[Rfam]
mir-19 microRNA precursor family: an 80-nucleotide sequence from Astyanax mexicanus. Rfam links the family to the GO terms miRNA-mediated post-transcriptional gene silencing and RISC complex. A reference for the family is Houbaviy et al. (2003), "Embryonic stem cell-specific MicroRNAs", Dev Cell. Its Rfam clan is "mir-19 clan".
RNA sequence: GGUGUCGGUCAGCUUUGCGGGGUGGGCAGUCAGCCUUCAUCAGAACCGCUGUGCAAACCCAUGCAAAACUGACCGCACCC
Numbered sequence: 001g002g003u004g005u006c007g008g009u010c011a012g013c014u015u016u017g018c019g020g021g022g023u024g025g026g027c028a029g030u031c032a033g034c035c036u037u038c039a040u041c042a043g044a045a046c047c048g049c050u051g052u053g054c055a056a057a058c059c060c061a062u063g064c065a066a067a068a069c070u071g072a073c074c075g076c077a078c079c080c
Stems, first nucleotide, its partner, number of pairs: 006075007014067006020060002023056001026054003032050003